Shown here is a 122-nucleotide RNA sequence from Pisciglobus halotolerans, a member of the family "S10-Clostridia ribosomal protein leader".
[Rfam]
RNA sequence: CAAUGGCUAGGAAACGGGAGGUUGCGAUACACCCGGCCGCUUUGCCACGGCGAGUGUGUCGGAAAUUUUCGUGGAGCAAUGUCUACUUUCUAAAAUAGGCGAAGGAGGGAAAAAAAUGGCAA
Numbered sequence: 001c002a003a004u005g006g007c008u009a010g011g012a013a014a015c016g017g018g019a020g021g022u023u024g025c026g027a028u029a030c031a032c033c034c035g036g037c038c039g040c041u042u043u044g045c046c047a048c049g050g051c052g053a054g055u056g057u058g059u060c061g062g063a064a065a066u067u068u069u070c071g072u073g074g075a076g077c078a079a080u081g082u083c084u085a086c087u088u089u090c091u092a093a094a095a096u097a098g099g100c101g102a103a104g105g106a107g108g109g110a111a112a113a114a115a116a117u118g119g120c121a122a
Stems, first nucleotide, its partner, number of pairs: 014072003018069004025061008080121004086099003
Dot-bracket structure: .............(((.((((...((((((((.....................))))))))....))))))).......((((..(((........)))..................)))).